RNA sequence: CUAAGUUCGCACGGGUGCUGAGACCGCCCCUUCUGGGGUUGGCAUCUCGGCUGAGACUUCACCGUCGGAACCUGAACAGGGUAAUGCCUGCGAAGGGAGCGAACUGUCUGGUGUA
Numbered sequence: 001c002u003a004a005g006u007u008c009g010c011a012c013g014g015g016u017g018c019u020g021a022g023a024c025c026g027c028c029c030c031u032u033c034u035g036g037g038g039u040u041g042g043c044a045u046c047u048c049g050g051c052u053g054a055g056a057c058u059u060c061a062c063c064g065u066c067g068g069a070a071c072c073u074g075a076a077c078a079g080g081g082u083a084a085u086g087c088c089u090g091c092g093a094a095g096g097g098a099g100c101g102a103a104c105u106g107u108c109u110g111g112u113g114u115a
Stems, first nucleotide, its partner, number of pairs: 006103005011065004017051007071096003077090004